[Rfam]
RNA sequence: UUCUUAUCGAGAGAGGUGGAGGGACUGGCCCAAUGAAACCCGGCAACCGCAAGUUCGCUUGAAGGUGCUAAAUCCUGCAAAGCAUAUGGGCUUUGGGAGAUGAGAG
Number, nucleotide and partner (000 for none) at each position: 001u106002u105003c104004u103005u102006a101007u100008c099009g000010a000011g000012a000013g041014a000015g040016g039017u038018g000019g000020a000021g031022g030023g029024a000025c077026u000027g075028g074029c023030c022031c021032a000033a000034u000035g000036a000037a000038a017039c016040c015041c013042g069043g068044c067045a066046a000047c065048c064049g000050c000051a059052a000053g000054u000055u000056c000057g000058c000059u051060u000061g000062a000063a000064g048065g047066u045067g044068c043069u042070a000071a000072a000073u098074c028075c027076u000077g025078c095079a094080a093081a092082g091083c090084a000085u000086a000087u000088g000089g000090g083091c082092u081093u080094u079095g078096g000097g000098a073099g008100a007101u006102g005103a004104g003105a002106g001